[Rfam]
RNA sequence: UAUUCGGACGCAGGAGAGAGCGCGGGAAUUACCCCCUCGCCGCCGAAGGCGCAACCGGCCCCCGGAACCGCUCAGGCACAAAGGGCUGCGGCUUGUAA
Numbered sequence: 001u002a003u004u005c006g007g008a009c010g011c012a013g014g015a016g017a018g019a020g021c022g023c024g025g026g027a028a029u030u031a032c033c034c035c036c037u038c039g040c041c042g043c044c045g046a047a048g049g050c051g052c053a054a055c056c057g058g059c060c061c062c063c064g065g066a067a068c069c070g071c072u073c074a075g076g077c078a079c080a081a082a083g084g085g086c087u088g089c090g091g092c093u094u095g096u097a098a
Stems, first nucleotide, its partner, number of pairs: 006093002009090005020040003042077003045073002049071003055065002
Annotation: Glycine riboswitch aptamer: a 98-nucleotide sequence from Acidocella aromatica. Taxonomically the source falls in Acidocella (Bacteria, Alphaproteobacteria, Acetobacterales, Acidocellaceae). A search with the family's covariance model found it, with a score of 55 bits.